[Rfam]
RNA sequence: UUUCCCAUUUUGGCACUAGCACAUUUUUGCUUCUGUAUAUAUCUGUUUGAGCAAUCAGGUGUAGUGCCAAUAUAGGAGG
Numbered sequence: 001u002u003u004c005c006c007a008u009u010u011u012g013g014c015a016c017u018a019g020c021a022c023a024u025u026u027u028u029g030c031u032u033c034u035g036u037a038u039a040u041a042u043c044u045g046u047u048u049g050a051g052c053a054a055u056c057a058g059g060u061g062u063a064g065u066g067c068c069a070a071u072a073u074a075g076g077a078g079g
Stems, first nucleotide, its partner, number of pairs: 004076002007073002010070008019062004024057001027054006